Shown here is a 170-nucleotide RNA sequence, a member of the family "Clostridiales-1 RNA". By type it is a small RNA.
RNA sequence: UGAUACUAGGGUCAAAAGCUCCAAAAGCCGUUCGUGCUUGCACGAUAAGGGUUUUGAGCUUGGGACCCGCAAAAACAUGAGGAUGCAGCGAUUUUCAAGGAAAAUCAGCGAAUCCGAAUGUUUUUAGAAUUGCGAAAGUUGCAUAGCAACGGAGCAAUUCGUGGGUAUCA
Numbered sequence: 001u002g003a004u005a006c007u008a009g010g011g012u013c014a015a016a017a018g019c020u021c022c023a024a025a026a027g028c029c030g031u032u033c034g035u036g037c038u039u040g041c042a043c044g045a046u047a048a049g050g051g052u053u054u055u056g057a058g059c060u061u062g063g064g065a066c067c068c069g070c071a072a073a074a075a076c077a078u079g080a081g082g083a084u085g086c087a088g089c090g091a092u093u094u095u096c097a098a099g100g101a102a103a104a105u106c107a108g109c110g111a112a113u114c115c116g117a118a119u120g121u122u123u124u125u126a127g128a129a130u131u132g133c134g135a136a137a138g139u140u141g142c143a144u145a146g147c148a149a150c151g152g153a154g155c156a157a158u159u160c161g162u163g164g165g166u167a168u169c170a
Base pairs, nucleotide, nucleotide: 001170002169003168004167005166006165007164010067011066012065013064017060018059019058020057021056024055025054026053027052028051029050031048032045033044034043035042036041071125072124073123074122075121076120077119078118081115082114083113084112090106091105092104093103094102095101096100127160128159129158130157131156132155133154138150139149140148141147